[Rfam]
RNA sequence: AAUGUACUUCAGGGCAGGGUGAGAUUCCCGACCGGCGGUAAACCCCGCGACCCAUCAAUGAUGGUUGAAUUGGUGAAAUUCCAAUGGCGACAGUAUAGUCUGGAUGAAAGAAGUUGUUU
Numbered sequence: 001a002a003u004g005u006a007c008u009u010c011a012g013g014g015c016a017g018g019g020u021g022a023g024a025u026u027c028c029c030g031a032c033c034g035g036c037g038g039u040a041a042a043c044c045c046c047g048c049g050a051c052c053c054a055u056c057a058a059u060g061a062u063g064g065u066u067g068a069a070u071u072g073g074u075g076a077a078a079u080u081c082c083a084a085u086g087g088c089g090a091c092a093g094u095a096u097a098g099u100c101u102g103g104a105u106g107a108a109a110g111a112a113g114u115u116g117u118u119u
Stems, first nucleotide, its partner, number of pairs: 006114005017029003031099002033089002035048004043087002052064002069085005091102003